[Rfam]
The record is a 109-nucleotide RNA sequence, which matches "Actinomyces-1 RNA" in Rfam.
RNA sequence: CCUGCCGCCGGACGGAGCCGGCCGCGAGGGUUGGGGAACCCGACGACCGGCUGGUGUCCGAGACGGAUCGGGUCUUAGGGAGCCCGGUUCGGUCGCUCCGGCGAAGGAG
Numbered sequence: 001c002c003u004g005c006c007g008c009c010g011g012a013c014g015g016a017g018c019c020g021g022c023c024g025c026g027a028g029g030g031u032u033g034g035g036g037a038a039c040c041c042g043a044c045g046a047c048c049g050g051c052u053g054g055u056g057u058c059c060g061a062g063a064c065g066g067a068u069c070g071g072g073u074c075u076u077a078g079g080g081a082g083c084c085c086g087g088u089u090c091g092g093u094c095g096c097u098c099c100g101g102c103g104a105a106g107g108a109g
Stems, first nucleotide, its partner, number of pairs: 006103007013060004018054007028041005062094003066090002069086005
Rfam classes the family as a small RNA.